Description:
The record is a 107-nucleotide RNA from Rhododendron simsii, which matches "Small nucleolar RNA snoR100" in Rfam.
RNA sequence: CAAUGAAGAAAAUAUGGUAAUGUGCACUAAAUUAAAUUGGGUCUCUAGGCCUGCCCUCUUUGAUACUAUUUGGCUUUAAUUAGUAGGCAUGGUUCCGCAAUAAAAUA
Numbered sequence: 001c002a003a004u005g006a007a008g009a010a011a012a013u014a015u016g017g018u019a020a021u022g023u024g025c026a027c028u029a030a031a032u033u034a035a036a037u038u039g040g041g042u043c044u045c046u047a048g049g050c051c052u053g054c055c056c057u058c059u060u061u062g063a064u065a066c067u068a069u070u071u072g073g074c075u076u077u078a079a080u081u082a083g084u085a086g087g088c089a090u091g092g093u094u095c096c097g098c099a100a101u102a103a104a105a106u107a
Stems, first nucleotide, its partner, number of pairs: 013024003039090001041088003049080001053074003
Pairs were carried over by alignment from the consensus structure, which was predicted with WAR. Rfam links the family to the GO terms nucleolus and RNA processing. Rfam classes the family as an H/ACA-box small nucleolar RNA. Taxonomically the source falls in Rhododendron (Eukaryota, Embryophyta, Mesangiospermae, Rhodoreae). The family has 9 seed sequences and 1,851 matches in Rfam 15.1. A search with the family's covariance model found it, with a score of 62 bits.